[Rfam]
RNA: U4 spliceosomal RNA
RNA sequence: AACUUUGCACAGUGGUAGUAUCAUAGCCAAUGAGGUUUAUCCGAGGCACAAUUAUCGCUAACUGAAAACUUUUCCCAAUACCACGCCAUGAUGACUUGAAAUAUAGUUGGCAUUGGCAAUUUUUGACAGUCUCUAUGGAGA
Numbered sequence: 001a002a003c004u005u006u007g008c009a010c011a012g013u014g015g016u017a018g019u020a021u022c023a024u025a026g027c028c029a030a031u032g033a034g035g036u037u038u039a040u041c042c043g044a045g046g047c048a049c050a051a052u053u054a055u056c057g058c059u060a061a062c063u064g065a066a067a068a069c070u071u072u073u074c075c076c077a078a079u080a081c082c083a084c085g086c087c088a089u090g091a092u093g094a095c096u097u098g099a100a101a102u103a104u105a106g107u108u109g110g111c112a113u114u115g116g117c118a119a120u121u122u123u124u125g126a127c128a129g130u131c132u133c134u135a136u137g138g139a140g141a
Stems, first nucleotide, its partner, number of pairs: 020052002024048001026047003034042002085117003088113003092109005130141004